[Rfam]
RNA: Acido-Lenti-1 RNA
RNA sequence: CCAGGGGCUCACGCCCCUGGCUACAUCAUUUCGCUCCUACGGAGCU
Numbered sequence: 001c002c003a004g005g006g007g008c009u010c011a012c013g014c015c016c017c018u019g020g021c022u023a024c025a026u027c028a029u030u031u032c033g034c035u036c037c038u039a040c041g042g043a044g045c046u
Stems, first nucleotide, its partner, number of pairs: 001020008033045005
Dot-bracket structure: ((((((((....))))))))............(((((...))))).